The family of this 104-nucleotide RNA from Lactiplantibacillus mudanjiangensis is "S10-Clostridia ribosomal protein leader".
RNA sequence: AGUUAGCUUUGAUGUGAAAGGUUGCGACACGCCCGGCCACAUUGUCAUGGGACGUGGCGGUAAUUUUCACGGAGCUAGUCUUAUUUUUCAAAAUAGACGAAGGA
Numbered sequence: 001a002g003u004u005a006g007c008u009u010u011g012a013u014g015u016g017a018a019a020g021g022u023u024g025c026g027a028c029a030c031g032c033c034c035g036g037c038c039a040c041a042u043u044g045u046c047a048u049g050g051g052a053c054g055u056g057g058c059g060g061u062a063a064u065u066u067u068c069a070c071g072g073a074g075c076u077a078g079u080c081u082u083a084u085u086u087u088u089c090a091a092a093a094u095a096g097a098c099g100a101a102g103g104a
Base pairs, nucleotide, nucleotide: 014070015069016068018067019066020065021064025059026058028056029055030054031053079103080102081101082100086097087096088095

The literature on the family includes a 2020 paper in BMC Microbiol by Eckert and Weinberg, "Discovery of 20 novel ribosomal leader candidates in bacteria and archaea". A search with the family's covariance model found it, with a score of 38 bits.